Background:
Shown here is a 311-nucleotide RNA from Gelria sp. Kuro-4, a member of the family "T-box leader". The family's RNA type in Rfam is cis-regulatory leader. Rfam's curators write: Uncharged tRNA acts as the effector for transcription antitermination of genes in the T-box leader family. T-boxes are found upstream of many aminoacyl-tRNA synthetase genes and some amino acid biosynthetic genes usually in Gram-positive bacteria. The anticodon of a specific tRNA base pairs to a specifier sequence within the T-box motif, and the NCCA acceptor tail of the tRNA base pairs to a conserved bulge in the T-box antiterminator hairpin.
RNA sequence: UUAAAUUCGAUGAGCGGGAAGAGUAGGCGGCAUAUCCAGGUUAUAGAGAGCCGGGGCGGUGGAAUUCCGGUACCUGUGGGUGUCGUUGAAUGGGCCCGGGAGAAGUCAUGCGAAAUUGUAGUAGCAGAGACCGGUGGUCUACCGUUAAAAGACAGGGUAUCGAAGUGUAAACUUCCGUACCUGAAAUGAGACGGCUGCGUUUAGGUGGCUAGCGGAUGCGAAAGCAUUUCGCCCUAAAGAGGGUGAAGUGCUUUUUUGUUAUCUAGACGGGCUGAAGUUGGGUGGCACCGCGGGGGUACCUCGUCCCAGUA
Numbered sequence: 001u002u003a004a005a006u007u008c009g010a011u012g013a014g015c016g017g018g019a020a021g022a023g024u025a026g027g028c029g030g031c032a033u034a035u036c037c038a039g040g041u042u043a044u045a046g047a048g049a050g051c052c053g054g055g056g057c058g059g060u061g062g063a064a065u066u067c068c069g070g071u072a073c074c075u076g077u078g079g080g081u082g083u084c085g086u087u088g089a090a091u092g093g094g095c096c097c098g099g100g101a102g103a104a105g106u107c108a109u110g111c112g113a114a115a116u117u118g119u120a121g122u123a124g125c126a127g128a129g130a131c132c133g134g135u136g137g138u139c140u141a142c143c144g145u146u147a148a149a150a151g152a153c154a155g156g157g158u159a160u161c162g163a164a165g166u167g168u169a170a171a172c173u174u175c176c177g178u179a180c181c182u183g184a185a186a187u188g189a190g191a192c193g194g195c196u197g198c199g200u201u202u203a204g205g206u207g208g209c210u211a212g213c214g215g216a217u218g219c220g221a222a223a224g225c226a227u228u229u230c231g232c233c234c235u236a237a238a239g240a241g242g243g244u245g246a247a248g249u250g251c252u253u254u255u256u257u258g259u260u261a262u263c264u265a266g267a268c269g270g271g272c273u274g275a276a277g278u279u280g281g282g283u284g285g286c287a288c289c290g291c292g293g294g295g296g297u298a299c300c301u302c303g304u305c306c307c308a309g310u311a
Base pairs, nucleotide, nucleotide: 007103008102015098016097017096018095026087027086028085029084030083031082039074040073041072050071051070052069053068054067055066106130107129109126110125111124132144133143134142251271252270253269255267256266257265279308280307281306282305290304291303292302293301294300